[Rfam]
RNA: Small nucleolar RNA SNORD24
Nucleotides: 080
Base pairs, nucleotide, nucleotide: 001080002079003078004077
Number, partner (000 for none) and nucleotide at each position: 001080a002079g003078c004077c005000g006000a007000u008000g009000a010000u011000g012000u013000a014000a015000g016000a017000a018000a019000g020000u021000u022000g023000c024000u025000a026000c027000u028000c029000a030000u031000g032000a033000u034000g035000g036000g037000u038000u039000u040000u041000u042000c043000c044000c045000a046000u047000a048000u049000g050000a051000g052000a053000a054000u055000u056000a057000c058000u059000u060000u061000c062000u063000a064000u065000c066000a067000a068000g069000a070000u071000c072000u073000u074000u075000g076000a077004g078003g079002c080001u